[Rfam]
RNA sequence: GCACUUAUCAAGAACUUUUUCUGUGACUUGCGUGAACUCUUAUAUGCAAACCGCAUCACAGUCUGAGUUCUUGCUUAGCGC
Numbered sequence: 001g002c003a004c005u006u007a008u009c010a011a012g013a014a015c016u017u018u019u020u021c022u023g024u025g026a027c028u029u030g031c032g033u034g035a036a037c038u039c040u041u042a043u044a045u046g047c048a049a050a051c052c053g054c055a056u057c058a059c060a061g062u063c064u065g066a067g068u069u070c071u072u073g074c075u076u077a078g079c080g081c
Stems, first nucleotide, its partner, number of pairs: 004078002009073009021061006030054003
Rfam assigns this 81-nucleotide RNA sequence from Drosophila virilis to the family "mir-11 microRNA precursor family". Rfam links the family to the GO terms cellular response to gamma radiation, negative regulation of apoptotic process and miRNA-mediated post-transcriptional gene silencing. The family has 20 seed sequences and 138 matches in Rfam 15.1. Its Rfam clan is "mir-6 clan". For this family Rfam cites "Next-generation small RNA sequencing for microRNAs profiling in the honey bee Apis mellifera" (Chen et al., Insect Mol Biol, 2010).